[Rfam]
This 84-nucleotide sequence from Dufourea novaeangliae belongs to the Rfam family "mir-184 microRNA precursor family". The family has 66 seed sequences and 948 matches in Rfam 15.1. Pairs were carried over by alignment from the consensus structure, which was predicted with PFOLD. For this family Rfam cites "The developmental miRNA profiles of zebrafish as determined by small RNA cloning" (Chen et al., Genes Dev, 2005). Rfam links the family to the GO terms gene silencing by miRNA and RISC complex.
RNA sequence: GUGCCCAAAGUCCCUUAUCAUUCUCCUGUCCGGUGUAGAGUUUUUAGACGACUGGACGGAGAACUGAUAAGGGCCCGCGGGUCA
Number, nucleotide and partner (000 for none) at each position: 001g000002u000003g000004c000005c000006c000007a000008a000009a000010g000011u000012c073013c072014c071015u070016u069017a068018u067019c066020a065021u063022u062023c061024u060025c059026c058027u000028g000029u055030c054031c000032g000033g000034u000035g000036u000037a000038g000039a000040g000041u000042u000043u000044u000045u000046a000047g000048a000049c000050g000051a000052c000053u000054g030055g029056a000057c000058g026059g025060a024061g023062a022063a021064c000065u020066g019067a018068u017069a016070a015071g014072g013073g012074c000075c000076c000077g000078c000079g000080g000081g000082u000083c000084a000